[Rfam]
RNA sequence: AAUAAUCUUCAGGGCGGGGUGCAAGUCCCCACCGGCGGUAAAGCCCGCGAGCCGAAAGGUUGACUCGGUGAAAUUCCGAGGCCGACAGUAUAGUCUGGAUGGGAGAAGAUUAAA
Numbered sequence: 001a002a003u004a005a006u007c008u009u010c011a012g013g014g015c016g017g018g019g020u021g022c023a024a025g026u027c028c029c030c031a032c033c034g035g036c037g038g039u040a041a042a043g044c045c046c047g048c049g050a051g052c053c054g055a056a057a058g059g060u061u062g063a064c065u066c067g068g069u070g071a072a073a074u075u076c077c078g079a080g081g082c083c084g085a086c087a088g089u090a091u092a093g094u095c096u097g098g099a100u101g102g103g104a105g106a107a108g109a110u111u112a113a114a
Stems, first nucleotide, its partner, number of pairs: 003112008017029003031094002033084002035048004043082002051060003064080005086097003
Shown here is a 114-nucleotide RNA sequence from Caloramator mitchellensis, a member of the family "FMN riboswitch aptamer (RFN element)".
Rfam's curators write: The RFN element is a highly conserved domain that is found frequently in the 5'-untranslated regions of prokaryotic mRNAs that encode for flavin mononucleotide (FMN) biosynthesis and transport proteins.
The family's consensus secondary structure is taken from published work.
The match comes from Rfam's covariance-model search (126 bits).